[Rfam]
RNA: Small Cajal body-specific RNA 7
Organism: Crypturellus soui
RNA sequence: UGGAAGUGAUGAAAUAGAGAUAAUUGGAUGUCUGUCUGAAUGGAGUGUGUAUGGUAAAUAGCAUUUGAAUUAAAUCAAACUUUUGGGAGUGGGGGAAGCGCGUGUGUGUUUGUGUGUGGUAUAAAAGGCUAAAAACUGGGGGCACUGAUAAUGAAGUGCUGAUUCCGGAGUGCAUCUGAGGCAUGUUGCUAAAUUCUGGGGUGUUGCUUUUCAACAUUGCCGAUGAUUAGAGCCCAAAACAAGCUCACCAGACUAGCCUUGGCAUCUUAAAAAUCUCUAACAGGUUCAUUAGUGAAAAUGAUCCUGUGAUCUGAUCCAA
Numbered sequence: 001u002g003g004a005a006g007u008g009a010u011g012a013a014a015u016a017g018a019g020a021u022a023a024u025u026g027g028a029u030g031u032c033u034g035u036c037u038g039a040a041u042g043g044a045g046u047g048u049g050u051a052u053g054g055u056a057a058a059u060a061g062c063a064u065u066u067g068a069a070u071u072a073a074a075u076c077a078a079a080c081u082u083u084u085g086g087g088a089g090u091g092g093g094g095g096a097a098g099c100g101c102g103u104g105u106g107u108g109u110u111u112g113u114g115u116g117u118g119g120u121a122u123a124a125a126a127g128g129c130u131a132a133a134a135a136c137u138g139g140g141g142g143c144a145c146u147g148a149u150a151a152u153g154a155a156g157u158g159c160u161g162a163u164u165c166c167g168g169a170g171u172g173c174a175u176c177u178g179a180g181g182c183a184u185g186u187u188g189c190u191a192a193a194u195u196c197u198g199g200g201g202u203g204u205u206g207c208u209u210u211u212c213a214a215c216a217u218u219g220c221c222g223a224u225g226a227u228u229a230g231a232g233c234c235c236a237a238a239a240c241a242a243g244c245u246c247a248c249c250a251g252a253c254u255a256g257c258c259u260u261g262g263c264a265u266c267u268u269a270a271a272a273a274u275c276u277c278u279a280a281c282a283g284g285u286u287c288a289u290u291a292g293u294g295a296a297a298a299u300g301a302u303c304c305u306g307u308g309a310u311c312u313g314a315u316c317c318a319a
Base pairs, nucleotide, nucleotide: 001318002317003316004315184216185215186214187213188212192205193204194203196200